The family of this 97-nucleotide RNA sequence from Lactococcus allomyrinae is "Bacterial small signal recognition particle RNA".
Rfam classes the family as a non-coding RNA gene.
For this family Rfam cites "SRPDB: Signal Recognition Particle Database" (Rosenblad et al., Nucleic Acids Res, 2003).
Clan: SRP clan.
Rfam's curators write: The signal recognition particle (SRP) is a universally conserved ribonucleoprotein involved in the co-translational targeting of proteins to membranes.
Pairs were carried over by alignment from the consensus structure, which is taken from published work.
The organism belongs to Lactococcus, within Bacteria.
[Rfam]
RNA sequence: UAAUACCUUUGGAGCAAUAAGUUUCAUACGAAGCGUGUCAGGACCUGACGGUAGCAGCACUAAGUUUGGAGCUUAUGUGCUCUUUUUUGUAUCAUUG
Numbered sequence: 001u002a003a004u005a006c007c008u009u010u011g012g013a014g015c016a017a018u019a020a021g022u023u024u025c026a027u028a029c030g031a032a033g034c035g036u037g038u039c040a041g042g043a044c045c046u047g048a049c050g051g052u053a054g055c056a057g058c059a060c061u062a063a064g065u066u067u068g069g070a071g072c073u074u075a076u077g078u079g080c081u082c083u084u085u086u087u088u089g090u091a092u093c094a095u096u097g
Base pairs, nucleotide, nucleotide: 003092004091005090006089011083012082013081014080015077017076018075019074020073021072022071024069025068026067028065029064035060036059037058038057043052044051045050